[Rfam]
RNA sequence: GGCAUUUUAUUUCUAAACCACGAUUAGCCCCGGAAACUAAUUGUGAUGAAAUAUACGAAAUGAAAAAA
Number, nucleotide and partner (000 for none) at each position: 001g000002g000003c000004a000005u000006u064007u063008u062009a061010u060011u059012u058013c000014u000015a000016a000017a000018c000019c045020a044021c043022g042023a041024u040025u039026a038027g037028c000029c000030c000031c000032g000033g000034a000035a000036a000037c027038u026039a025040a024041u023042u022043g021044u020045g019046a000047u000048g000049a000050a000051a000052u000053a000054u000055a000056c000057g000058a012059a011060a010061u009062g008063a007064a006065a000066a000067a000068a000
Record summary
Shown here is a 68-nucleotide sequence from Lentibacillus amyloliquefaciens, a member of the family "Ribosomal protein L13 leader". The organism belongs to Lentibacillus, within Bacteria. The family's consensus secondary structure was predicted with CMfinder. This family is a putative r-protein leader autoregulatory structure found in B. subtilis and other low-GC Gram-positive bacteria. It scores 49 bits against the family's covariance model.